[Rfam]
RNA sequence: GUAACACUCAAAACAUGGCGGCACUUCCCUUCGCAAGACGGAAGUGCCCCCACAGUUUGAGUACCAC
Number, nucleotide and partner (000 for none) at each position: 001g000002u000003a000004a000005c000006a062007c061008u060009c059010a058011a057012a056013a000014c000015a000016u052017g051018g050019c000020g048021g047022c046023a045024c044025u043026u042027c041028c040029c000030u000031u000032c000033g000034c000035a000036a000037g000038a000039c000040g028041g027042a026043a025044g024045u023046g022047c021048c020049c000050c018051c017052a016053c000054a000055g000056u012057u011058u010059g009060a008061g007062u006063a000064c000065c000066a000067c000
This 67-nucleotide sequence from Moschus moschiferus belongs to the Rfam family "mir-290 microRNA precursor family". Taxonomically the source falls in Moschus (Eukaryota, Bilateria, Theria, Ruminantia). The family is grouped with related families in Rfam's "mir-290 clan".